[Rfam]
Annotation
Shown here is a 143-nucleotide RNA from Cavia porcellus, a member of the family "Small nucleolar RNA SNORA12". A reference for the family is Gu et al. (2005), "A novel experimental approach for systematic identification of box H/ACA snoRNAs from eukaryotes", Nucleic Acids Res. Its family is annotated with RNA processing and nucleolus in the Gene Ontology. The source organism's lineage runs through Eukaryota, Opisthokonta, Deuterostomia, Gnathostomata and Cavia. The match comes from Rfam's covariance-model search (118 bits). From the family's description: U108 belongs to the H/ACA family of snoRNAs.
RNA sequence: AGUUGUGGUAGUUUCUUUCUGGCACAUUUGUUAAGUUUUCAAAUGGGUCUGACUCUACCACAUACAUUGUAAGGAGCUAGCAAAGCUUUAAAGACUGAAAUGCCUCUCGAGCUUUUUUGUAUGAGACAUUGGCUCUCACAAUC
Numbered sequence: 001a002g003u004u005g006u007g008g009u010a011g012u013u014u015c016u017u018u019c020u021g022g023c024a025c026a027u028u029u030g031u032u033a034a035g036u037u038u039u040c041a042a043a044u045g046g047g048u049c050u051g052a053c054u055c056u057a058c059c060a061c062a063u064a065c066a067u068u069g070u071a072a073g074g075a076g077c078u079a080g081c082a083a084a085g086c087u088u089u090a091a092a093g094a095c096u097g098a099a100a101u102g103c104c105u106c107u108c109g110a111g112c113u114u115u116u117u118u119g120u121a122u123g124a125g126a127c128a129u130u131g132g133c134u135c136u137c138a139c140a141a142u143c
Stems, first nucleotide, its partner, number of pairs: 005061007021049003025045006073136006079088002105126003